The family of this 47-nucleotide sequence from Rhodamnia argentea is "Plastid-ycf3 group II-D1 intron".
[Rfam]
RNA sequence: AAUCCUUCUGUCAUGUAUCCUCGAUUAAUGCAGCCUUGGAUGCUUUA
Numbered sequence: 001a002a003u004c005c006u007u008c009u010g011u012c013a014u015g016u017a018u019c020c021u022c023g024a025u026u027a028a029u030g031c032a033g034c035c036u037u038g039g040a041u042g043c044u045u046u047a
Base pairs, nucleotide, nucleotide: 010025011024012023032044033043034042
Pairs were carried over by alignment from the consensus structure, which was predicted with LocARNA. NCBI's taxonomy places the organism under Eukaryota, Streptophytina, Tracheophyta, Mesangiospermae, Rhodamnia.